Background: The family of this 357-nucleotide part of an RNA from a Theionarchaea archaeon is "Archaeal small subunit ribosomal RNA". Its family is annotated with structural constituent of ribosome and ribosome in the Gene Ontology. A search with the family's covariance model found it, with a score of 1535 bits. The family's consensus secondary structure is taken from published work.
[Rfam]
RNA sequence: GGCCUAAAGCGUCCGUAGCCGGGCAGAUAAGUCUCUAGGUAAAUCUUGCGUAUAAGCGUAAGGCUUCUGGAGAUACUGUCUGCCUUGAGGCCGGGAGAGGUUGGAGGUACUCCCGGGGUAGGGGUAAAAUCCUGUAAUCCUGGGGGGACCACCGGUGGCGAAGGCGUCCAACUGGAACGGCCCUGACGGUGAGGGACGAAACCCAGGGGAGCGAGCCGGAUUAGAUACCCGGGUAGUCCUGGGCGUAAAUGAUGCGGACUAGGUGUGGGGAUAUCCACGAGAUAUCUCUGUGCCGAAGGGAAGCCAUUAAGUCCGCCGCCUGGGGAGUACGGCUGCAAGGCUGAAACUUAAAGGAAU
Number, nucleotide and partner (000 for none) at each position: 001g320002g319003c318004c000005u000006a000007a000008a000009g317010c000011g197012u196013c195014c194015g000016u191017a000018g190019c189020c188021g000022g084023g083024c082025a081026g080027a079028u078029a000030a077031g076032u073033c072034u071035c070036u069037a068038g067039g066040u000041a000042a000043a000044u000045c062046u061047u060048g059049c058050g057051u056052a000053u000054a000055a000056g051057c050058g049059u048060a047061a046062g045063g000064c000065u000066u039067c038068u037069g036070g035071a034072g033073a032074u000075a000076c031077u030078g028079u027080c026081u025082g024083c023084c022085u000086u000087g000088a184089g183090g182091c180092c179093g178094g000095g000096a000097g000098a000099g173100g172101u171102u170103g169104g168105a167106g150107g149108u000109a000110c146111u145112c144113c143114c142115g141116g140117g139118g000119u000120a000121g132122g131123g130124g000125u000126a000127a000128a000129a000130u123131c122132c121133u000134g000135u000136a000137a000138u000139c117140c116141u115142g114143g113144g112145g111146g110147g000148a000149c107150c106151a000152c000153c000154g000155g000156u000157g000158g165159c164160g000161a000162a000163g000164g159165c158166g000167u105168c104169c103170a102171a101172c100173u099174g000175g000176a000177a000178c093179g092180g091181c000182c090183c089184u088185g000186a000187c000188g020189g019190u018191g016192a000193g000194g014195g013196a012197c011198g000199a000200a000201a000202c243203c242204c241205a240206g239207g238208g000209g000210a000211g237212c236213g000214a000215g000216c232217c231218g230219g229220a000221u000222u000223a000224g000225a000226u000227a000228c000229c219230c218231g217232g216233g000234u000235a000236g212237u211238c207239c206240u205241g204242g203243g202244c000245g000246u000247a000248a000249a000250u000251g000252a000253u000254g316255c315256g314257g313258a312259c311260u000261a000262g294263g293264u292265g291266u290267g289268g288269g287270g286271a285272u284273a283274u282275c281276c000277a000278c000279g000280a000281g275282a274283u273284a272285u271286c270287u269288c268289u267290g266291u265292g264293c263294c262295g000296a000297a000298g305299g304300g000301a000302a000303g000304c299305c298306a000307u000308u000309a000310a000311g259312u258313c257314c256315g255316c254317c009318g003319c002320c001321u000322g349323g348324g347325g000326a000327g000328u000329a000330c000331g342332g341333c340334u339335g000336c000337a000338a000339g334340g333341c332342u331343g000344a000345a000346a000347c324348u323349u322350a000351a000352a000353g000354g000355a000356a000357u000